[Rfam]
The record is a 129-nucleotide RNA from Arminella tumorigenes, which matches "Alphaproteobacterial ar14" in Rfam. The pairing is the family consensus, mapped onto this sequence. Taxonomically the source falls in Arminella (Bacteria, Alphaproteobacteria, Hyphomicrobiales, Rhizobiaceae).

RNA sequence: CGAAUUCAGACGUCCACUCCUCCCCCGCAGGGACGUCUGUCGGAACAGCGGCUUUCCUCCUCGUAAGCUGUCUGUUCGGUUCUUUUCGAAAGCCUGCCGCACCUCCUCCUCCCGCGGCAGGCUUUUCGU
Numbered sequence: 001c002g003a004a005u006u007c008a009g010a011c012g013u014c015c016a017c018u019c020c021u022c023c024c025c026c027g028c029a030g031g032g033a034c035g036u037c038u039g040u041c042g043g044a045a046c047a048g049c050g051g052c053u054u055u056c057c058u059c060c061u062c063g064u065a066a067g068c069u070g071u072c073u074g075u076u077c078g079g080u081u082c083u084u085u086u087c088g089a090a091a092g093c094c095u096g097c098c099g100c101a102c103c104u105c106c107u108c109c110u111c112c113c114g115c116g117g118c119a120g121g122c123u124u125u126u127c128g129u
Stems, first nucleotide, its partner, number of pairs: 007039009043077006049070004090124011